[Rfam]
Shown here is a 157-nucleotide RNA from Pseudorhizobium banfieldiae, a member of the family "speF leader".
Rfam links the family to the GO term regulation of gene expression.
The family's consensus secondary structure was predicted with RNAalifold.
The literature on the family includes a 2005 paper in Genome Biol by Corbino et al., "Evidence for a second class of S-adenosylmethionine riboswitches and other regulatory RNA motifs in alpha-proteobacteria".
The organism belongs to Pseudorhizobium, within Bacteria.
It scores 102 bits against the family's covariance model.
This family is a putative regulatory RNA structure that is found upstream of the speF gene encoding ornithine decarboxylase in Agrobacterium tumefaciens and other alpha-proteobacteria.
RNA sequence: UUCCGGCUUUCCAUCAGCCGGGGUCACUGAAGAGGCACACCAUCAUUGCCGGAAGUGCGGUGGGAUAAUCCCUCCAAUCCAUGGCAGACAAAGCCGGAUCUUUGCCCGUGGCAGGGCGCUGAUCCAUUGUUUGCGCGUAUGAGCGUGUAGCGGCGUC
Numbered sequence: 001u002u003c004c005g006g007c008u009u010u011c012c013a014u015c016a017g018c019c020g021g022g023g024u025c026a027c028u029g030a031a032g033a034g035g036c037a038c039a040c041c042a043u044c045a046u047u048g049c050c051g052g053a054a055g056u057g058c059g060g061u062g063g064g065a066u067a068a069u070c071c072c073u074c075c076a077a078u079c080c081a082u083g084g085c086a087g088a089c090a091a092a093g094c095c096g097g098a099u100c101u102u103u104g105c106c107c108g109u110g111g112c113a114g115g116g117c118g119c120u121g122a123u124c125c126a127u128u129g130u131u132u133g134c135g136c137g138u139a140u141g142a143g144c145g146u147g148u149a150g151c152g153g154c155g156u157c
Stems, first nucleotide, its partner, number of pairs: 001023008034050004057136003083095002103118005